[Rfam]
RNA sequence: UUUUAUUUCGGCUUAGGGAUAGCAACGGCAUCCUUUGCCUUUUUAGGCAAAGAUAGAGUGUAUAGCCCGACCUUUA
Numbered sequence: 001u002u003u004u005a006u007u008u009c010g011g012c013u014u015a016g017g018g019a020u021a022g023c024a025a026c027g028g029c030a031u032c033c034u035u036u037g038c039c040u041u042u043u044u045a046g047g048c049a050a051a052g053a054u055a056g057a058g059u060g061u062a063u064a065g066c067c068c069g070a071c072c073u074u075u076a
Base pairs, nucleotide, nucleotide: 016068017067018066020064021063025059026058030054031053032052036049037048038047039046040045
Flavo-1 RNA: a 76-nucleotide RNA from Brumimicrobium salinarum. It is annotated as a small RNA. The family has 201 seed sequences and 7,497 matches in Rfam 15.1. Lineage of the source: Bacteria > Bacteroidota > Flavobacteriia > Crocinitomicaceae > Brumimicrobium.